[Rfam]
This 98-nucleotide RNA sequence from Pan troglodytes belongs to the Rfam family "mir-544 microRNA precursor family". The family's consensus secondary structure was predicted with RNAalifold. On this family, see Chiang et al., Genes Dev 2010: "Mammalian microRNAs: experimental evaluation of novel and previously annotated genes". It scores 74 bits against the family's covariance model. Rfam links the family to the GO terms miRNA-mediated post-transcriptional gene silencing and RISC complex.
RNA sequence: AUCACCAGGGCUUCUUAUUAAAAUGCACAUUCUGAUUUAGGAGGUUGGAGUGGGGGCCUGAGAUUCUGCAUUUCUAACAAGCUCCCAGGUGAUGCUGA
Numbered sequence: 001a002u003c004a005c006c007a008g009g010g011c012u013u014c015u016u017a018u019u020a021a022a023a024u025g026c027a028c029a030u031u032c033u034g035a036u037u038u039a040g041g042a043g044g045u046u047g048g049a050g051u052g053g054g055g056g057c058c059u060g061a062g063a064u065u066c067u068g069c070a071u072u073u074c075u076a077a078c079a080a081g082c083u084c085c086c087a088g089g090u091g092a093u094g095c096u097g098a
Stems, first nucleotide, its partner, number of pairs: 003091003009085002014081003018077003021073003025069003029065001031063003
Dot-bracket structure: ..(((...((...(((.((((((.(((.(.(((...........................))).).))).))).))).)))..))...))).......